About this RNA: Shown here is a 596-nucleotide part of an RNA from Monopylocystis visvesvarai, a member of the family "Eukaryotic small subunit ribosomal RNA". The source organism's lineage runs through Eukaryota, Discoba, Heterolobosea, Psalteriomonadidae and Monopylocystis.

RNA sequence: AGUUAAAACGUUCGUAGUCGCCCUAAGGGGUUUUAGAUUGAAGUCGGUUGAUUUAAUCCUAUUAGUGCUGUUAUUCUAAUAACUCACUAGAAGGUCGAUUUUCGGAGUCCUUUGGGACUUAUUAGAUCUUCCAUAGCGUGCCUUGGGUUUUGUUCUUAACUUAGGUUUUGAUCAUGCCUAUAGUGUCACGUGAUUUCGAUUUAUUGCCCCGAUUUUAACCUGUGAGCAAAUUAGUGCGAUCAAAGGAUGAUUAGUGGUGGCUUACUCUUCACGGAGUGGCUAUUUGUGAUGCAACAUACUUUAGCACAGAACCAGUUGUUCCGGUUGUUCUGCAACCGGUAUAGACAAUAGAACCAGGAACAGGCUUUCGGUAUUUACUGAUGAGGGGUGAAAUCCGUAUAGUCCGUAAGGACCCACGGAGGCGAAAGCGGAAAGCUAGUACUGAUUCAUAUGAUGAGGAACGAGAGCCAGGGGAGCAAAGAUGAUUAGAUACCGUCGUAGUCCUGGCUGUAAACUAUACAAAUUAGAGAUUGUAUGAAACCAUAUAACAGAUUCUUACAGGAUCCCCCGAGAAAUCCUAAAUUUUUGUGUUCUUG
Dot-bracket structure: ((.....(.((((...(((...........................................................................................................................................................................................................................................................................................................................................(((..((.(...(((((((((..(((((.((...(((......)))......)).)))))..)).......((....)).)))))))..).))..)))....)))...))))....((((((...((...((((.........))))...))))))))..........((((((..((..(((((.((.(.(........).))).)))))..))....((....))....)))....))))))..

Notes:
Clan: SSU clan. The base pairs follow the family's consensus structure, which is taken from published work.